[Rfam]
RNA sequence: AGUUGCUCAUUCAAUUUUUUAUGACCGGCCCCGUAUUAGCGGAACAGCGCCUCAUAAGCCGCCGAAUGAUGCCAAAGUAAUGGUGCCUAUCGUCCAACCAAACCGAUAAUUGCUGCGCAAGUGGCUUUAUCAAGCAUCGGGCGACACGUUGAGUGAGGCACCGCCUU
Dot-bracket structure: ....((((((((......((((((..(((...................)))))))))......)))))).)).........(((((((..(((((.........(((((.................))))).......))))).(((.....)))))))))).....
RNA: Glm Y RNA activator of glmS mRNA
Organism: Serratia sp. DD3